[Rfam]
RNA sequence: CCUCGUAAAUCGCUGAGUCCCGCGAUACGCGGGAGCGGGGGAACCAACCGCAGACUGUGACGAAUUCGUCACGGACUGCACGGGGUGAAUCCCGGGUUGAUGCCUGGGUAGGGUGACUCUCAGCCACCCGAAUCCGUCAGCUAACCUCGUAAGCGUUGUGAGAGGGGGA
Numbered sequence: 001c002c003u004c005g006u007a008a009a010u011c012g013c014u015g016a017g018u019c020c021c022g023c024g025a026u027a028c029g030c031g032g033g034a035g036c037g038g039g040g041g042a043a044c045c046a047a048c049c050g051c052a053g054a055c056u057g058u059g060a061c062g063a064a065u066u067c068g069u070c071a072c073g074g075a076c077u078g079c080a081c082g083g084g085g086u087g088a089a090u091c092c093c094g095g096g097u098u099g100a101u102g103c104c105u106g107g108g109u110a111g112g113g114u115g116a117c118u119c120u121c122a123g124c125c126a127c128c129c130g131a132a133u134c135c136g137u138c139a140g141c142u143a144a145c146c147u148c149g150u151a152a153g154c155g156u157u158g159u160g161a162g163a164g165g166g167g168g169a
Stems, first nucleotide, its partner, number of pairs: 011155004018034006035150006045082001083135003091108004111129004
Description
Shown here is a 169-nucleotide sequence from Polycladomyces abyssicola, a member of the family "c-di-AMP riboswitch aptamer (ydaO/yuaA leader)". The organism belongs to Polycladomyces, within Bacteria. Gene Ontology terms of the family: cyclic-di-AMP binding and regulation of gene expression.